RNA sequence: UAGUGAUUUCAGCUCUUUUUGUAUUUGUCUAGCAGGUUUUCUGCAGUAGCGGAAAGCCGUC
Numbered sequence: 001u002a003g004u005g006a007u008u009u010c011a012g013c014u015c016u017u018u019u020u021g022u023a024u025u026u027g028u029c030u031a032g033c034a035g036g037u038u039u040u041c042u043g044c045a046g047u048a049g050c051g052g053a054a055a056g057c058c059g060u061c
Stems, first nucleotide, its partner, number of pairs: 035058010

U7 small nuclear RNA: a 61-nucleotide RNA sequence from Podarcis muralis. For this family Rfam cites "3' end processing of mouse histone pre-mRNA: evidence for additional base-pairing between U7 snRNA and pre-mRNA" (Spycher et al., Nucleic Acids Res, 1994).